RNA sequence: ACUGGCCGCCGGCAAACGCAAUGGAAGUUGCGCACGCAAAGCCACAGGCCCAAGCGCUGGAAUGCGGGUUCCGCGCGGGCAGCUGGGUUGCAUCU
Dot-bracket structure: ...........((...((((((....))))))...))..((((.((((((.......((((((....))))))....)))..)))))))......

Rfam assigns this 95-nucleotide RNA from Pseudorhodoferax sp. Leaf267 to the family "c-di-GMP-I riboswitch aptamer". From the family's description: GEMM was predicted in a large-scale screen for bacterial structured RNA regulatory elements. Genes associated with GEMM are involved in a diverse array of functions, including chemotaxis regulation, signal transduction, secretion and chitin.